[Rfam]
Record summary
This 66-nucleotide sequence from Nematostella vectensis belongs to the Rfam family "mir-9436 microRNA precursor family". Pairs were carried over by alignment from the consensus structure, which was predicted with RNAalifold.
RNA sequence: CUGGCUAAACAUUCAAACAUGUUUGUCAAACAUUUCGUUUGACGCAAAUGUUUGUAUGUUUAGCCA
Number, nucleotide and partner (000 for none) at each position: 001c000002u066003g065004g064005c063006u062007a061008a060009a059010c058011a057012u000013u000014c000015a053016a052017a051018c050019a049020u048021g000022u000023u000024u044025g043026u042027c041028a040029a039030a038031c037032a000033u000034u000035u000036c000037g031038u030039u029040u028041g027042a026043c025044g024045c000046a000047a000048a020049u019050g018051u017052u016053u015054g000055u000056a000057u011058g010059u009060u008061u007062a006063g005064c004065c003066a002
Notes:
Lineage of the source: Eukaryota > Opisthokonta > Hexacorallia > Actiniaria > Nematostella.